[Rfam]
RNA sequence: UCAUGCUUGGCUCCUUGUACGCCACCGGCAGCCGAUUUUUAAACCAAAAUCGGUAUCCACUCGUGGCAUACAGGGAGCCAGGCAUAA
Numbered sequence: 001u002c003a004u005g006c007u008u009g010g011c012u013c014c015u016u017g018u019a020c021g022c023c024a025c026c027g028g029c030a031g032c033c034g035a036u037u038u039u040u041a042a043a044c045c046a047a048a049a050u051c052g053g054u055a056u057c058c059a060c061u062c063g064u065g066g067c068a069u070a071c072a073g074g075g076a077g078c079c080a081g082g083c084a085u086a087a
Stems, first nucleotide, its partner, number of pairs: 001087001003085004008080007016072004021067004027061002